[Rfam]
RNA sequence: CGAGCCAGCUAGACAAUCGCUUCAUCCUUGUGGUGGGGAGGAAAGUCCGGGCUCCAUAGGGCAGAACGCCAGGUAACGCCUGGGGGGCGCGAGCCUACGGAAAGUGCAGCAGAGAGUAGACCGCCUGUGUUCUUGGCAACAAGAGCAUCGGUAAGGGUGAAAGGGUGCGGUAAGAGCGCACCGCGCAGCUGGUAACAGUCUGUGGCGAUGGUAAACCCCGUUCGGAGCAAGACCAAAUAGGAAUCCUACAGGUGCGGCCCGCACUGGAUUCGGGUAGGUCGCUUGAGGCGUAUGGUGACAUACGUCCCAGAUGAAUGAUUGUCCUCGACAGAACCCGGCUUAUCGGCUGGCUCAUCAU
Numbered sequence: 001c002g003a004g005c006c007a008g009c010u011a012g013a014c015a016a017u018c019g020c021u022u023c024a025u026c027c028u029u030g031u032g033g034u035g036g037g038g039a040g041g042a043a044a045g046u047c048c049g050g051g052c053u054c055c056a057u058a059g060g061g062c063a064g065a066a067c068g069c070c071a072g073g074u075a076a077c078g079c080c081u082g083g084g085g086g087g088c089g090c091g092a093g094c095c096u097a098c099g100g101a102a103a104g105u106g107c108a109g110c111a112g113a114g115a116g117u118a119g120a121c122c123g124c125c126u127g128u129g130u131u132c133u134u135g136g137c138a139a140c141a142a143g144a145g146c147a148u149c150g151g152u153a154a155g156g157g158u159g160a161a162a163g164g165g166u167g168c169g170g171u172a173a174g175a176g177c178g179c180a181c182c183g184c185g186c187a188g189c190u191g192g193u194a195a196c197a198g199u200c201u202g203u204g205g206c207g208a209u210g211g212u213a214a215a216c217c218c219c220g221u222u223c224g225g226a227g228c229a230a231g232a233c234c235a236a237a238u239a240g241g242a243a244u245c246c247u248a249c250a251g252g253u254g255c256g257g258c259c260c261g262c263a264c265u266g267g268a269u270u271c272g273g274g275u276a277g278g279u280c281g282c283u284u285g286a287g288g289c290g291u292a293u294g295g296u297g298a299c300a301u302a303c304g305u306c307c308c309a310g311a312u313g314a315a316u317g318a319u320u321g322u323c324c325u326c327g328a329c330a331g332a333a334c335c336c337g338g339c340u341u342a343u344c345g346g347c348u349g350g351c352u353c354a355u356c357a358u
Stems, first nucleotide, its partner, number of pairs: 002353009011343001012323007020038007043341003047338005052227004059260004064223005069083005084098001085096004099218002104216002106212002121156002123152003127148009164182006183206001184204005189198003231280004241271006251265005287306008